[Rfam]
RNA sequence: GCGUCUUUCGCGGGAGAGACUGGUCCCGGCUAAGCCCGGAUCCGGCGCCGAAGGAGCAACCGCCCCGGAAACUCUCAGGCAAAUGGACCGCGAAAAGGCA
Numbered sequence: 001g002c003g004u005c006u007u008u009c010g011c012g013g014g015a016g017a018g019a020c021u022g023g024u025c026c027c028g029g030c031u032a033a034g035c036c037c038g039g040a041u042c043c044g045g046c047g048c049c050g051a052a053g054g055a056g057c058a059a060c061c062g063c064c065c066c067g068g069a070a071a072c073u074c075u076c077a078g079g080c081a082a083a084u085g086g087a088c089c090g091c092g093a094a095a096a097g098g099c100a
Stems, first nucleotide, its partner, number of pairs: 006095008020045004047080003050076002054074003060068002
RNA: Glycine riboswitch aptamer
Organism: Erythrobacter sp. NAP1